This 139-nucleotide RNA from Triticum aestivum belongs to the Rfam family "Small nucleolar RNA Z247". Rfam links the family to the GO terms RNA processing and nucleolus. Lineage of the source: Eukaryota > Streptophyta > Magnoliopsida > Triticodae > Triticum.
RNA sequence: CCCAUCGAUGACGAUGAGCUUGUCUCCUACAUCACCGCCGGCCUCGACAUGGAGUAUCAGCCCCUCGUCUUCGCCACCGACGCGCGCACCGACACCAUCAGCAUCGACGACCUCUACGCUCAGAUGAGCAACUUUGAUC
Number, nucleotide and partner (000 for none) at each position: 001c000002c000003c000004a138005u137006c136007g135008a134009u000010g000011a000012c000013g000014a000015u000016g000017a000018g000019c000020u000021u000022g000023u000024c000025u000026c000027c000028u000029a000030c000031a000032u000033c000034a000035c000036c000037g000038c000039c000040g000041g000042c000043c000044u000045c000046g000047a000048c000049a000050u000051g000052g000053a000054g000055u000056a000057u000058c000059a000060g000061c000062c000063c000064c000065u000066c000067g000068u000069c000070u000071u000072c000073g000074c000075c000076a000077c000078c000079g000080a000081c000082g000083c000084g000085c000086g000087c000088a000089c000090c106091g105092a104093c000094a000095c000096c000097a000098u000099c000100a000101g000102c000103a000104u092105c091106g090107a000108c000109g000110a000111c000112c000113u000114c000115u000116a000117c000118g000119c000120u000121c000122a000123g000124a000125u000126g000127a000128g000129c000130a000131a000132c000133u000134u008135u007136g006137a005138u004139c000

Notes
Pairs were carried over by alignment from the consensus structure, which was predicted with PFOLD.